The record is a 229-nucleotide sequence from Gracilibacillus halophilus, which matches "T-box leader" in Rfam. Rfam's curators write: Uncharged tRNA acts as the effector for transcription antitermination of genes in the T-box leader family. By type it is a cis-regulatory leader. The match comes from Rfam's covariance-model search (115 bits). The source organism's lineage runs through Bacteria, Bacillati, Caryophanales, Bacillaceae and Gracilibacillus halophilus.
[Rfam]
RNA sequence: CAAAGUACGUUGAUUGGGAGAGUAUGGUGAUGAAUAGCUUUCAAAGCGAGUCAGGGAUGGUGGAAGCCUGAUAAAGCCCAUUAUCAGAAGAUCACCCAUGAAGUAGUUGUGUUGAAUAUAAGUAGACGCAAUCGUUUCAUUCACGAUACGAAUGUUGGAGUGGACAAUGACUGAUUGAUCAUCGGCAUUGUCUAUGAGGGUGGUACCGCGAGUCCUUCUCGUCCCUUAG
Numbered sequence: 001c002a003a004a005g006u007a008c009g010u011u012g013a014u015u016g017g018g019a020g021a022g023u024a025u026g027g028u029g030a031u032g033a034a035u036a037g038c039u040u041u042c043a044a045a046g047c048g049a050g051u052c053a054g055g056g057a058u059g060g061u062g063g064a065a066g067c068c069u070g071a072u073a074a075a076g077c078c079c080a081u082u083a084u085c086a087g088a089a090g091a092u093c094a095c096c097c098a099u100g101a102a103g104u105a106g107u108u109g110u111g112u113u114g115a116a117u118a119u120a121a122g123u124a125g126a127c128g129c130a131a132u133c134g135u136u137u138c139a140u141u142c143a144c145g146a147u148a149c150g151a152a153u154g155u156u157g158g159a160g161u162g163g164a165c166a167a168u169g170a171c172u173g174a175u176u177g178a179u180c181a182u183c184g185g186c187a188u189u190g191u192c193u194a195u196g197a198g199g200g201u202g203g204u205a206c207c208g209c210g211a212g213u214c215c216u217u218c219u220c221g222u223c224c225c226u227u228a229g
Base pairs, nucleotide, nucleotide: 007104008103015098016097017096018095025086026085027084028083029082030081039075040074041073050072051071052070053069054068055067107131108130109129110128111127112126113125133145134144135143163192164191165190166189167188168187169186197226198225199224200223208222209221210220211219212218
Dot-bracket structure: ......((......((((......((((((........(((........((((((...........))))))))).....))))))........))))....))..(((((((...........))))))).(((.......))).................(((((((................)))))))....((((.......(((((.....)))))))))...